[Rfam]
RNA sequence: GAGCUAUGAAGAUUUUAAAGGAAUCUGAGAUUCAAUGAAGACAUGAGAUCCAACUCUGAGCUCACUAAAAAG
Number, nucleotide and partner (000 for none) at each position: 001g063002a062003g061004c060005u000006a000007u000008g000009a000010a000011g000012a000013u000014u000015u000016u000017a000018a000019a000020g000021g000022a000023a000024u000025c000026u000027g000028a000029g000030a000031u000032u000033c000034a000035a000036u000037g000038a000039a000040g000041a000042c000043a000044u000045g000046a000047g000048a000049u000050c000051c000052a000053a000054c000055u000056c000057u000058g000059a000060g004061c003062u002063c001064a000065c000066u000067a000068a000069a000070a000071a000072g000
Rfam assigns this 72-nucleotide RNA from Calcarius ornatus to the family "Small nucleolar RNA SNORD19". The base pairs follow the family's consensus structure. A search with the family's covariance model found it, with a score of 51 bits. The family is grouped with related families in Rfam's "SNORD19 clan". The literature on the family includes a 2001 paper in EMBO J by Huttenhofer et al., "RNomics: an experimental approach that identifies 201 candidates for novel, small, non-messenger RNAs in mouse". NCBI's taxonomy places the organism under Eukaryota, Chordata, Gnathostomata, Sauria, Calcarius. Rfam 15.1 lists 1,431 matches to the family in 609 species.